[Rfam]
RNA sequence: UAAGUAAGUGAUGAUAGAUCAGACAGGGACAUCUGUAUUCCAUUGGAACAUGAUGAUUUGUCUGUGGGAAUCUCUCUGAUGCUAU
Numbered sequence: 001u002a003a004g005u006a007a008g009u010g011a012u013g014a015u016a017g018a019u020c021a022g023a024c025a026g027g028g029a030c031a032u033c034u035g036u037a038u039u040c041c042a043u044u045g046g047a048a049c050a051u052g053a054u055g056a057u058u059u060g061u062c063u064g065u066g067g068g069a070a071u072c073u074c075u076c077u078g079a080u081g082c083u084a085u
Base pairs, nucleotide, nucleotide: 003083004082005081006080